RNA: mir-395 microRNA precursor family
RNA sequence: UUGUUCCCUGGAGUUCCCCUGAACACUUCACUGAGGCUAUUUAAGAACCUUAACAGAGGGAAUUUUGUCCUACUGAAGUGUUUGGGAGGAACUCUAGGAGAUAG
Numbered sequence: 001u002u003g004u005u006c007c008c009u010g011g012a013g014u015u016c017c018c019c020u021g022a023a024c025a026c027u028u029c030a031c032u033g034a035g036g037c038u039a040u041u042u043a044a045g046a047a048c049c050u051u052a053a054c055a056g057a058g059g060g061a062a063u064u065u066u067g068u069c070c071u072a073c074u075g076a077a078g079u080g081u082u083u084g085g086g087a088g089g090a091a092c093u094c095u096a097g098g099a100g101a102u103a104g
Stems, first nucleotide, its partner, number of pairs: 005100001007098003011094007018086003022083002024080007032072002035069001